Overview
c-di-GMP-I-GGC riboswitch aptamer: a 76-nucleotide sequence from Candidatus Vecturithrix granuli. For this family Rfam cites "Bioinformatic analysis of riboswitch structures uncovers variant classes with altered ligand specificity" (Weinberg et al., Proc Natl Acad Sci U S A, 2017). Pairs were carried over by alignment from the consensus structure, which is taken from published work. The organism belongs to Candidatus Vecturithrix, within Bacteria.

[Rfam]
RNA sequence: CCUGAUAAAGCCAAACUCACCGUGAGGUGAGGACGGAAAGCCACGGGUCUUGCAAAAGAAAGCCGGGUUGCCUGGA
Numbered sequence: 001c002c003u004g005a006u007a008a009a010g011c012c013a014a015a016c017u018c019a020c021c022g023u024g025a026g027g028u029g030a031g032g033a034c035g036g037a038a039a040g041c042c043a044c045g046g047g048u049c050u051u052g053c054a055a056a057a058g059a060a061a062g063c064c065g066g067g068u069u070g071c072c073u074g075g076a
Stems, first nucleotide, its partner, number of pairs: 004072001011036002016031006034062001039069004044065003048059002
Dot-bracket structure: ...(......((...((((((....))))))..[))..((((.(((.((........))..])))))))..)....